[Rfam]
RNA sequence: CUGUACUUAGAUGGAUAGUGAUAGCUGUUUCAGCUAUUUUGAAUUUUAAGUAUGAUGUUGUGUUUGCAUAUUGGUCUAGGCAACUAGACUGGAGUAACGAAAGUUACUCGUUUCACUUCCUGUAUAUUUUGAACCAUUUGGUUUAAUACCGCCCAUUUGGGCGGUUUUUUUCAUU
Numbered sequence: 001c002u003g004u005a006c007u008u009a010g011a012u013g014g015a016u017a018g019u020g021a022u023a024g025c026u027g028u029u030u031c032a033g034c035u036a037u038u039u040u041g042a043a044u045u046u047u048a049a050g051u052a053u054g055a056u057g058u059u060g061u062g063u064u065u066g067c068a069u070a071u072u073g074g075u076c077u078a079g080g081c082a083a084c085u086a087g088a089c090u091g092g093a094g095u096a097a098c099g100a101a102a103g104u105u106a107c108u109c110g111u112u113u114c115a116c117u118u119c120c121u122g123u124a125u126a127u128u129u130u131g132a133a134c135c136a137u138u139u140g141g142u143u144u145a146a147u148a149c150c151g152c153c154c155a156u157u158u159g160g161g162c163g164g165u166u167u168u169u170u171u172c173a174u175u
Base pairs, nucleotide, nucleotide: 009046010045011044012043016041017040018039020038021037022036023035024034025033026032027031072091073090074089075088076087077086078085079084093108094107095106096105097104098103124144126142127141128140145168146167148165149164150163151162152161